[Rfam]
RNA sequence: CCUGCUGUAUUACCAGCAGUUUCCUAUUCCGGCAUGCAUCUCCAGCAAUGGAUUUGUGUGAAGCCCGGAUGACAAUGAAACCCUCGGCCUCCGGCCGGAAGAGAGAAUCGCGAGAGAACCUCAACUCUGGGAGCAUCAACCCGGAUGGGAGC
Numbered sequence: 001c002c003u004g005c006u007g008u009a010u011u012a013c014c015a016g017c018a019g020u021u022u023c024c025u026a027u028u029c030c031g032g033c034a035u036g037c038a039u040c041u042c043c044a045g046c047a048a049u050g051g052a053u054u055u056g057u058g059u060g061a062a063g064c065c066c067g068g069a070u071g072a073c074a075a076u077g078a079a080a081c082c083c084u085c086g087g088c089c090u091c092c093g094g095c096c097g098g099a100a101g102a103g104a105g106a107a108u109c110g111c112g113a114g115a116g117a118a119c120c121u122c123a124a125c126u127c128u129g130g131g132a133g134c135a136u137c138a139a140c141c142c143g144g145a146u147g148g149g150a151g152c
Stems, first nucleotide, its partner, number of pairs: 002019006028069005033060006041052004084098006101122002108115002126145006